[Rfam]
A member of the RNA family "Bacterial RNase P class A" from Aequorivita viscosa, 336 nucleotides long.
RNA sequence: ACAGCAGGCCGCCUUAUCGUCGAGAUUCCCGCCUUCGCGAGGAUUUGGGAGGAAAGUCCGGACACCAUAGGGAAGCAUAACGGCUAACAGCCGUCGGGAUCCCCGCCUUAGCGGAGAUUUCAGGACAAGUGCAGCAGAAAGGAUGUACAGGUAAUGCUGUAGUGAAAUCAGGUAAACUCUAUGCGGUGAAAUGCCACGUAAACCUGUGCUUGAGGGUUCCCGCCCGAUGCAGGAGGGUAGGCAGAUUGAGCGUUUCGGUAACGGAACGUCUAGAUAAAUGAUAAGGUACCGAACUAGCUUCGGUAACAGAACCCGGCUUAUAGGCCUGCUUUUUUU
Numbered sequence: 001a002c003a004g005c006a007g008g009c010c011g012c013c014u015u016a017u018c019g020u021c022g023a024g025a026u027u028c029c030c031g032c033c034u035u036c037g038c039g040a041g042g043a044u045u046u047g048g049g050a051g052g053a054a055a056g057u058c059c060g061g062a063c064a065c066c067a068u069a070g071g072g073a074a075g076c077a078u079a080a081c082g083g084c085u086a087a088c089a090g091c092c093g094u095c096g097g098g099a100u101c102c103c104c105g106c107c108u109u110a111g112c113g114g115a116g117a118u119u120u121c122a123g124g125a126c127a128a129g130u131g132c133a134g135c136a137g138a139a140a141g142g143a144u145g146u147a148c149a150g151g152u153a154a155u156g157c158u159g160u161a162g163u164g165a166a167a168u169c170a171g172g173u174a175a176a177c178u179c180u181a182u183g184c185g186g187u188g189a190a191a192u193g194c195c196a197c198g199u200a201a202a203c204c205u206g207u208g209c210u211u212g213a214g215g216g217u218u219c220c221c222g223c224c225c226g227a228u229g230c231a232g233g234a235g236g237g238u239a240g241g242c243a244g245a246u247u248g249a250g251c252g253u254u255u256c257g258g259u260a261a262c263g264g265a266a267c268g269u270c271u272a273g274a275u276a277a278a279u280g281a282u283a284a285g286g287u288a289c290c291g292a293a294c295u296a297g298c299u300u301c302g303g304u305a306a307c308a309g310a311a312c313c314c315g316g317c318u319u320a321u322a323g324g325c326c327u328g329c330u331u332u333u334u335u336u
Stems, first nucleotide, its partner, number of pairs: 001332001003330008011321001012286007020049002023046006054319003058316004063188004070221004075184005080094005095123001096121006124179002129177002131173002192243004203233005214225004250269008
NCBI's taxonomy places the organism under Bacteria, Bacteroidota, Flavobacteriia, Flavobacteriales, Aequorivita.